[Rfam]
RNA sequence: AUGAUGCUCGCAGGAGAGAUACAGGCACAGCUGCAUAUUAUUAUCACCGUGAUAAUAAUAUGCAGCUGUGCCUGUAUCUCUCCUGCGAGCAUCAUA
Numbered sequence: 001a002u003g004a005u006g007c008u009c010g011c012a013g014g015a016g017a018g019a020u021a022c023a024g025g026c027a028c029a030g031c032u033g034c035a036u037a038u039u040a041u042u043a044u045c046a047c048c049g050u051g052a053u054a055a056u057a058a059u060a061u062g063c064a065g066c067u068g069u070g071c072c073u074g075u076a077u078c079u080c081u082c083c084u085g086c087g088a089g090c091a092u093c094a095u096a
Stems, first nucleotide, its partner, number of pairs: 005091017023073016
Dot-bracket structure: ....(((((((((((((((((.((((((((((((((((...................)))))))))))))))).))))))))))))))))).....
This 96-nucleotide RNA sequence from Oreochromis aureus belongs to the Rfam family "mir-31 microRNA precursor family". NCBI's taxonomy places the organism under Eukaryota, Euacanthomorphacea, Percomorphaceae, African cichlids, Oreochromis. Gene Ontology terms of the family: gene silencing by miRNA and RISC complex. On this family, see Chiang et al., Genes Dev 2010: "Mammalian microRNAs: experimental evaluation of novel and previously annotated genes".